[Rfam]
RNA sequence: ACAACAUUCGGACCGUCGGUCUACCGAGCAAAUAUCACCCGCUCGGUGGAAGAUCUUUGUUGUAUU
Numbered sequence: 001a002c003a004a005c006a007u008u009c010g011g012a013c014c015g016u017c018g019g020u021c022u023a024c025c026g027a028g029c030a031a032a033u034a035u036c037a038c039c040c041g042c043u044c045g046g047u048g049g050a051a052g053a054u055c056u057u058u059g060u061u062g063u064a065u066u
Base pairs, nucleotide, nucleotide: 004063005062006061011058012057015054016053017052020050021049022048023047024046025045026044027043028042029041
The family of this 66-nucleotide RNA sequence from Bombyx mori is "mir-2774 microRNA precursor family".
Its family is annotated with RISC complex and miRNA-mediated post-transcriptional gene silencing in the Gene Ontology.
The match comes from Rfam's covariance-model search (66 bits).